[Rfam]
RNA sequence: CGGUAAUGCCUCCUUACCGUUACUAAUGGAGACACUCGGUCAUACUGUGGGUGAAGUUUUUAUUUACCUUAGACGCAAUCGUCGUCAAUGGUGUGAUGUGAGGGUGGGUUAGAUGCCCU
Number, nucleotide and partner (000 for none) at each position: 001c019002g018003g017004u016005a000006a000007u034008g033009c000010c031011u030012c029013c028014u000015u000016a004017c003018c002019g001020u000021u000022a000023c000024u000025a000026a000027u000028g013029g012030a011031g010032a000033c008034a007035c102036u101037c100038g099039g097040u096041c095042a094043u093044a092045c091046u090047g000048u000049g069050g068051g067052u066053g065054a064055a063056g000057u000058u000059u000060u000061u000062a000063u055064u054065u053066a052067c051068c050069u049070u000071a000072g086073a085074c084075g083076c000077a000078a000079u000080c000081g000082u000083c075084g074085u073086c072087a000088a000089u000090g046091g045092u044093g043094u042095g041096a040097u039098g000099u038100g037101a036102g035103g000104g000105u000106g118107g117108g116109u115110u000111a000112g000113a000114u000115g109116c108117c107118c106119u000

Rfam assigns this 119-nucleotide RNA sequence from Bacillus sp. V5-8f to the family "epsC RNA". The base pairs follow the family's consensus structure, which is taken from published work. The family has 30 seed sequences and 450 matches in Rfam 15.1. A search with the family's covariance model found it, with a score of 105 bits.